[Rfam]
A member of the RNA family "Qrr RNA" from Vibrio aerogenes, 103 nucleotides long. About the family: This family represents a set of small RNAs (the Qrr RNAs) that are thought to be involved in the regulation of quorum sensing in Vibrio species. It is believed that these RNAs, guided by a protein, Hfq, can mediate the destabilisation of the quorum-sensing master regulators LuxR/HapR mRNAs. It is annotated as a small RNA. The literature on the family includes a 2004 paper in Cell by Lenz et al., "The Small RNA Chaperone Hfq and Multiple Small RNAs Control Quorum Sensing in Vibrio harveyi and Vibrio cholerae". A search with the family's covariance model found it, with a score of 100 bits. The family has 30 seed sequences and 148 matches in Rfam 15.1.
RNA sequence: UGACCCUUUUAAGCCGAGGGUCACCUAGCCAACUGACGUUGUUAGUGAAUUUAUUUAUUCACAUUUUUCAGCCAGUCACUGUUUUGUGACUGGCUUUUUUUUU
Numbered sequence: 001u002g003a004c005c006c007u008u009u010u011a012a013g014c015c016g017a018g019g020g021u022c023a024c025c026u027a028g029c030c031a032a033c034u035g036a037c038g039u040u041g042u043u044a045g046u047g048a049a050u051u052u053a054u055u056u057a058u059u060c061a062c063a064u065u066u067u068u069c070a071g072c073c074a075g076u077c078a079c080u081g082u083u084u085u086g087u088g089a090c091u092g093g094c095u096u097u098u099u100u101u102u103u
Stems, first nucleotide, its partner, number of pairs: 001023006040070002045062006072093008